[Rfam]
RNA: Fluoride riboswitch aptamer (crcB RNA motif)
Organism: Lachnospiraceae bacterium OM04-12BH
RNA sequence: AAAGCAACAGGGAAUGAAGUUCUCCCUUGAAUGUAAUAUUCAAAACCGCUGAUGAAAGCUGAUGACUUCUGCAAAUAA
Numbered sequence: 001a002a003a004g005c006a007a008c009a010g011g012g013a014a015u016g017a018a019g020u021u022c023u024c025c026c027u028u029g030a031a032u033g034u035a036a037u038a039u040u041c042a043a044a045a046c047c048g049c050u051g052a053u054g055a056a057a058g059c060u061g062a063u064g065a066c067u068u069c070u071g072c073a074a075a076u077a078a
Base pairs, nucleotide, nucleotide: 010026011025012024013023016069017068018067019066020065021064048059049058050057